Shown here is a 79-nucleotide RNA sequence from Myotis brandtii, a member of the family "mir-17 microRNA precursor family".
Rfam's curators write: This family represents the microRNA (miRNA) precursor mir-17, family, which includes mir-20, mir-91, and mir-103. miRNAs are transcribed as ~70nt precursors (modelled here) and subsequently processed by the Dicer enzyme to give a ~22nt product. In this case the mature sequence comes from the 3' arm of the precursor. The extents of the hairpin precursors are not generally known and are estimated based on hairpin prediction.
The match comes from Rfam's covariance-model search (71 bits).
The family's consensus secondary structure was predicted with RNAalifold.
Rfam 15.1 lists 4,687 matches to the family in 648 species.
On this family, see Lagos-Quintana et al., Science 2001: "Identification of novel genes coding for small expressed RNAs".
[Rfam]
RNA sequence: CUAGUAGUACCAAAGUGCUCAUAGUGCAGGUAGUUUUGCCAUUAUUCUACUGUAGUGUGAGCACUUCUGGUACUCUUGG
Dot-bracket structure: ...(.((.(((.(((((((((((.(((.(((((.............)))))))).)))))))))))..))).)).)...